[Rfam]
RNA sequence: ACCGAACCAACUGGAGAGCGUCGCGGCAGGCUGGCAGACACCAGCGCCGGCGGCCGCCGAAGGGGCAAGCCGAAGUCCGGGUGGACCAGGCGAAUCUCUCAGGCAAAAGGACAGUGGGGGCAGG
Numbered sequence: 001a002c003c004g005a006a007c008c009a010a011c012u013g014g015a016g017a018g019c020g021u022c023g024c025g026g027c028a029g030g031c032u033g034g035c036a037g038a039c040a041c042c043a044g045c046g047c048c049g050g051c052g053g054c055c056g057c058c059g060a061a062g063g064g065g066c067a068a069g070c071c072g073a074a075g076u077c078c079g080g081g082u083g084g085a086c087c088a089g090g091c092g093a094a095u096c097u098c099u100c101a102g103g104c105a106a107a108a109g110g111a112c113a114g115u116g117g118g119g120g121c122a123g124g
Base pairs, nucleotide, nucleotide: 007118008117010115011114012113013112020054021053022052023051056104057103058102059100060099063098064097065096069091070090
RNA: Glycine riboswitch aptamer
Organism: Cupriavidus sp. USMAA2-4